[Rfam]
RNA: MIR807 microRNA precursor family
RNA sequence: AACCACACUAUUAAUGAAUGGAUUCAUCCACGAGAUGACAUGCAUGGUUGUUUCAUUUAGAACAAGGAUAUGGCAUCCUAUUACCAACCAUCGUACGAAAUUAAUAGGAUGUCACGUCCUUAUCGUAGAUGGAACAACCACGCCAUCUCAAGGGUUAAUCCAUUCAUCGAUAGUGUGGUU
Numbered sequence: 001a002a003c004c005a006c007a008c009u010a011u012u013a014a015u016g017a018a019u020g021g022a023u024u025c026a027u028c029c030a031c032g033a034g035a036u037g038a039c040a041u042g043c044a045u046g047g048u049u050g051u052u053u054c055a056u057u058u059a060g061a062a063c064a065a066g067g068a069u070a071u072g073g074c075a076u077c078c079u080a081u082u083a084c085c086a087a088c089c090a091u092c093g094u095a096c097g098a099a100a101u102u103a104a105u106a107g108g109a110u111g112u113c114a115c116g117u118c119c120u121u122a123u124c125g126u127a128g129a130u131g132g133a134a135c136a137a138c139c140a141c142g143c144c145a146u147c148u149c150a151a152g153g154g155u156u157a158a159u160c161c162a163u164u165c166a167u168c169g170a171u172a173g174u175g176u177g178g179u180u
Stems, first nucleotide, its partner, number of pairs: 001180007009172004014167002017164003021160004026155003032149002035146003039142001045140008055130002058127002062123001067118003073112011090101002